[Rfam]
Background: The record is a 116-nucleotide RNA sequence from Cohnella sp. AR92, which matches "Glycine riboswitch aptamer" in Rfam. Rfam describes the family as follows. This family represents the bacterial glycine riboswitch. NCBI's taxonomy places the organism under Bacteria, Bacillota, Bacilli, Paenibacillaceae, Cohnella.
RNA sequence: CGACUCUGGAGAGCAUUCCGUCUUGCAUUCGAUCAUCGGGCGGAAUCACCCACGGGGAAACUUAUUGCCAAGCGGGAAUAAGGUAACUCUCAGGUACAAAGGACAGAGCUGGAAGA
Numbered sequence: 001c002g003a004c005u006c007u008g009g010a011g012a013g014c015a016u017u018c019c020g021u022c023u024u025g026c027a028u029u030c031g032a033u034c035a036u037c038g039g040g041c042g043g044a045a046u047c048a049c050c051c052a053c054g055g056g057g058a059a060a061c062u063u064a065u066u067g068c069c070a071a072g073c074g075g076g077a078a079u080a081a082g083g084u085a086a087c088u089c090u091c092a093g094g095u096a097c098a099a100a101g102g103a104c105a106g107a108g109c110u111g112g113a114a115g116a
Stems, first nucleotide, its partner, number of pairs: 001111002004108005015046009048095003052090001055089003061082006